[Rfam]
RNA sequence: AGUUGGUCCGAAGGCUGUGGGUUAUUGUUAUACAUGGUUAACAUUGUCUCCCCCCACACCCGUGCUUGACUAACUGAGUGUUUU
Numbered sequence: 001a002g003u004u005g006g007u008c009c010g011a012a013g014g015c016u017g018u019g020g021g022u023u024a025u026u027g028u029u030a031u032a033c034a035u036g037g038u039u040a041a042c043a044u045u046g047u048c049u050c051c052c053c054c055c056a057c058a059c060c061c062g063u064g065c066u067u068g069a070c071u072a073a074c075u076g077a078g079u080g081u082u083u084u
Stems, first nucleotide, its partner, number of pairs: 001075008010067002014063002016058006026043003030039001

Shown here is an 84-nucleotide sequence from Cavia porcellus, a member of the family "Y RNA". The source organism's lineage runs through Eukaryota, Dipnotetrapodomorpha, Amniota, Eutheria and Cavia.